tRNA: an 84-nucleotide RNA sequence from Paludibacter jiangxiensis.
The base pairs follow the family's consensus structure, which is taken from published work.
On this family, see Hou, Trends Biochem Sci 1993: "The tertiary structure of tRNA and the development of the genetic code".
It is annotated as a transfer RNA.
Gene Ontology term of the family: triplet codon-amino acid adaptor activity.
RNA sequence: ACCCAGGUGGUGGAAUUGGUAGACACGCUACUUUGAGGGGGUAGUGAGAGCAAUCUUGUGUGAGUUCGAAUCUCAUCCUGGGUA
Numbered sequence: 001a002c003c004c005a006g007g008u009g010g011u012g013g014a015a016u017u018g019g020u021a022g023a024c025a026c027g028c029u030a031c032u033u034u035g036a037g038g039g040g041g042u043a044g045u046g047a048g049a050g051c052a053a054u055c056u057u058g059u060g061u062g063a064g065u066u067c068g069a070a071u072c073u074c075a076u077c078c079u080g081g082g083u084a
Stems, first nucleotide, its partner, number of pairs: 001083007010026003028044005060076005